[Rfam]
RNA sequence: AAAAAGGCAAACCCUGGGUUUCUGUGUCCAACUUUGACUGUCCGUCUUAUAUGAAAUUUUUUUGUAAUUCAUAUUUUCAUUGUUGUUAGAUGAUAAAACAUGAUUAAUAUUUUAUGCGUGACUUGUCUUUUAAUUUUUUCAUAAUUAUUUGAAAUAAGACAGACGGUCAAACGUUGGGCACGGAAACCAGGGUUUGUCUUUUU
Dot-bracket structure: ..........................((((((((((((((((.(((((((.......................................................................................................))))))).)))))))))).)))))).........................
The family of this 203-nucleotide sequence from Oryza sativa is "MIR812 microRNA precursor family". Gene Ontology terms of the family: RISC complex and miRNA-mediated post-transcriptional gene silencing. The source organism's lineage runs through Eukaryota, Tracheophyta, Spermatophyta, Oryzoideae and Oryza sativa.